[Rfam]
RNA sequence: CUUUGGCCUGAUUCAAGUAAUCCAGGAUAGGCUUGUUUAGUGGGGAAAGCCUAUUCCGGAUAACUUGGUUCAGGAAUGAG
Numbered sequence: 001c002u003u004u005g006g007c008c009u010g011a012u013u014c015a016a017g018u019a020a021u022c023c024a025g026g027a028u029a030g031g032c033u034u035g036u037u038u039a040g041u042g043g044g045g046a047a048a049g050c051c052u053a054u055u056c057c058g059g060a061u062a063a064c065u066u067g068g069u070u071c072a073g074g075a076a077u078g079a080g
Base pairs, nucleotide, nucleotide: 002079003078007074008073009072010071011070014067015066016065017064018063020061021060022059025056026055027054028053029052030051031050032049033048
Dot-bracket structure: .((...(((((..(((((.(((..(((((((((..............)))))))))..))).)))))..)))))...)).

The family of this 80-nucleotide RNA sequence from Chanos chanos is "mir-26 microRNA precursor family". The match comes from Rfam's covariance-model search (62 bits). Pairs were carried over by alignment from the consensus structure, which was predicted with RNAalifold.